[Rfam]
RNA sequence: AUAACGAGAUGGGAAGCGGCUUGCUUCCCGUGUAUGAUUGAACCCGCUGGCACCCUGGUGCUGAGGGUUCAUUUUUAU
Numbered sequence: 001a002u003a004a005c006g007a008g009a010u011g012g013g014a015a016g017c018g019g020c021u022u023g024c025u026u027c028c029c030g031u032g033u034a035u036g037a038u039u040g041a042a043c044c045c046g047c048u049g050g051c052a053c054c055c056u057g058g059u060g061c062u063g064a065g066g067g068u069u070c071a072u073u074u075u076u077a078u
Stems, first nucleotide, its partner, number of pairs: 010030009039071007

A member of the RNA family "sroE RNA" from Kluyvera cryocrescens, 78 nucleotides long. The literature on the family includes a 2003 paper in Nucleic Acids Res by Vogel et al., "RNomics in Escherichia coli detects new sRNA species and indicates parallel transcriptional output in bacteria". Rfam classes the family as a small RNA. Pairs were carried over by alignment from the consensus structure, which was predicted with PFOLD. Rfam describes the family as follows. This family consists of a number of bacterial sroE RNA genes of around 90 bases in length. sroE is found in several Enterobacterial species but its function is unknown.